[Rfam]
The family of this 75-nucleotide sequence from Tsukamurella paurometabola is "ASpks TB sRNA". The family's consensus secondary structure is taken from published work. It scores 55 bits against the family's covariance model.
Nucleotides: 075
Stems, first nucleotide, its partner, number of pairs: 014026001016024002030071003037065002044059001047056003
Number, partner (000 for none) and nucleotide at each position: 001000c002000u003000u004000c005000a006000g007000c008000g009000a010000g011000c012000c013000g014026a015000g016024c017023c018000a019000c020000a021000g022000c023017g024016g025000g026014u027000c028000g029000g030071c031070g032069g033000u034000g035000u036000c037065c038064g039000g040000a041000c042000g043000c044059u045000g046000c047056c048055c049054g050000u051000a052000c053000g054049u055048g056047g057000c058000g059044a060000u061000c062000a063000g064038c065037g066000c067000a068000u069032u070031c071030g072000c073000c074000u075000c